Plastid-psbN 5UTR RNA: a 61-nucleotide RNA sequence from Hevea brasiliensis. Taxonomically the source falls in Hevea (Eukaryota, Embryophyta, Spermatophyta, Malpighiales).
RNA sequence: GCCAUUGCCCAUCAAAGGAGUAUUUCCCCAUCCAGGAGCUACUUUACCAUAUUCCAAAUUC
Numbered sequence: 001g002c003c004a005u006u007g008c009c010c011a012u013c014a015a016a017g018g019a020g021u022a023u024u025u026c027c028c029c030a031u032c033c034a035g036g037a038g039c040u041a042c043u044u045u046a047c048c049a050u051a052u053u054c055c056a057a058a059u060u061c
Base pairs, nucleotide, nucleotide: 017045018044019043020042021041022040024038025037026036027035
The family's consensus secondary structure was predicted with LocARNA. About the family: Plastid psbN is a non-coding RNA (ncRNA) recognised in plastids. It was reported as a conserved 11 stem-loop in the prime untranslated region (5UTR) of psbN genes. Rfam classes the family as a cis-regulatory element.